[Rfam]
Description:
Rfam assigns this 113-nucleotide RNA from Papio anubis to the family "Y RNA". For this family Rfam cites "Conserved features of Y RNAs: a comparison of experimentally derived secondary structures" (Teunissen et al., Nucleic Acids Res, 2000). The match comes from Rfam's covariance-model search (43 bits). The family's consensus secondary structure is taken from published work.
RNA sequence: GCCUCCUCUGAAGGUAGUGAGUUACCUCAAUUGUUUGUUCACAGUGAAUUACAGAUGGAAAUCCUUGUUCUACCUCUUUCCCACUUCUCCCUACUGCACUUGACUGGUCUUAA
Numbered sequence: 001g002c003c004u005c006c007u008c009u010g011a012a013g014g015u016a017g018u019g020a021g022u023u024a025c026c027u028c029a030a031u032u033g034u035u036u037g038u039u040c041a042c043a044g045u046g047a048a049u050u051a052c053a054g055a056u057g058g059a060a061a062u063c064c065u066u067g068u069u070c071u072a073c074c075u076c077u078u079u080c081c082c083a084c085u086u087c088u089c090c091c092u093a094c095u096g097c098a099c100u101u102g103a104c105u106g107g108u109c110u111u112a113a
Base pairs, nucleotide, nucleotide: 001109003107004106007103008102010101011100014097015096016092017091019089020088021087043075044074047071